A member of the RNA family "Small nucleolar RNA SNORA71" from Erinaceus europaeus, 133 nucleotides long.
The family's consensus secondary structure was predicted with PFOLD.
It is one of the family's seed sequences.
Gene Ontology terms of the family: RNA processing and nucleolus.
Rfam's curators write: The members of this family belong to the H/ACA class of snoRNAs which bind a number of proteins (including dyskerin, Gar1p and Nop10p) to form snoRNP complexes. This class of snoRNAs are thought to guide the sites of modification of uridines to pseudouridines by forming direct base pairing interactions with substrate RNAs.

[Rfam]
RNA sequence: ACCUGCAUUCGAAAGUGAUCACGGGCUGCCUGUGCCCUGGUCAUUGAUAGUGCAGGGAGAGCAACUGCCAAAAGCGUUUCCCCGUGUUUGGAGGGUCUCCCCUGUCCCUUCUGAACCCUGAAGCUUUCUCACA
Numbered sequence: 001a002c003c004u005g006c007a008u009u010c011g012a013a014a015g016u017g018a019u020c021a022c023g024g025g026c027u028g029c030c031u032g033u034g035c036c037c038u039g040g041u042c043a044u045u046g047a048u049a050g051u052g053c054a055g056g057g058a059g060a061g062c063a064a065c066u067g068c069c070a071a072a073a074g075c076g077u078u079u080c081c082c083c084g085u086g087u088u089u090g091g092a093g094g095g096u097c098u099c100c101c102c103u104g105u106c107c108c109u110u111c112u113g114a115a116c117c118c119u120g121a122a123g124c125u126u127u128c129u130c131a132c133a
Stems, first nucleotide, its partner, number of pairs: 002056008014045008023037004067130001071127005086116005091110005